[Rfam]
RNA sequence: ACAUUCCGACAGGGGAGCGCUCGGAGCGCUGAGAGUGCGGCACGGCCGCAGACCCUCGGACCUGAUCCGGGUCAUACCGGCGUAGGGAGUCAGCAUCAUCAUGAA
Number, nucleotide and partner (000 for none) at each position: 001a000002c000003a000004u000005u000006c093007c000008g091009a090010c089011a056012g055013g054014g053015g000016a000017g029018c028019g027020c026021u025022c000023g000024g000025a021026g020027c019028g018029c017030u000031g000032a000033g000034a000035g000036u050037g049038c048039g047040g046041c000042a000043c000044g000045g000046c040047c039048g038049c037050a036051g000052a000053c014054c013055c012056u011057c000058g000059g000060a000061c086062c085063u084064g083065a000066u000067c080068c079069g078070g077071g000072u000073c000074a000075u000076a000077c070078c069079g068080g067081c000082g000083u064084a063085g062086g061087g000088a000089g010090u009091c008092a000093g006094c000095a000096u000097c000098a000099u000100c000101a000102u000103g000104a000105a000
Source information
Shown here is a 105-nucleotide RNA from Streptomyces malaysiensis, a member of the family "TPP riboswitch aptamer (THI element)". Pairs were carried over by alignment from the consensus structure, which is taken from published work.